[Rfam]
sul1 RNA: a 58-nucleotide RNA sequence from Cereibacter changlensis.
RNA sequence: ACUGGACCCGGGUUCGACUCCCGGGUGGCUCCUCCAACCGCCGAUCCGCCGGACAACC
Numbered sequence: 001a002c003u004g005g006a007c008c009c010g011g012g013u014u015c016g017a018c019u020c021c022c023g024g025g026u027g028g029c030u031c032c033u034c035c036a037a038c039c040g041c042c043g044a045u046c047c048g049c050c051g052g053a054c055a056a057c058c
Stems, first nucleotide, its partner, number of pairs: 006026006033053003038048001
Rfam 15.1 lists 519 matches to the family in 480 species.
The source organism's lineage runs through Bacteria, Alphaproteobacteria, Rhodobacterales, Cereibacter and Cereibacter changlensis.